[Rfam]
RNA sequence: ACUGGUUAUAGGGAUGACAUACUUGCCCUCACUGACAUGAUAGUUUGGUGAUGAGAAUCUCGCUCUUUAUACUCAUCAGU
Numbered sequence: 001a002c003u004g005g006u007u008a009u010a011g012g013g014a015u016g017a018c019a020u021a022c023u024u025g026c027c028c029u030c031a032c033u034g035a036c037a038u039g040a041u042a043g044u045u046u047g048g049u050g051a052u053g054a055g056a057a058u059c060u061c062g063c064u065c066u067u068u069a070u071a072c073u074c075a076u077c078a079g080u
Base pairs, nucleotide, nucleotide: 001080002079003078004077005076006075
Small nucleolar RNA SNORD103/SNORD85: an 80-nucleotide sequence from Loxodonta africana. The literature on the family includes a 2003 paper in Nucleic Acids Res by Vitali et al., "Identification of 13 novel human modification guide RNAs". The base pairs follow the family's consensus structure. It scores 46 bits against the family's covariance model. Rfam links the family to the GO terms nucleolus and RNA processing. Taxonomically the source falls in Loxodonta (Eukaryota, Deuterostomia, Mammalia, Eutheria).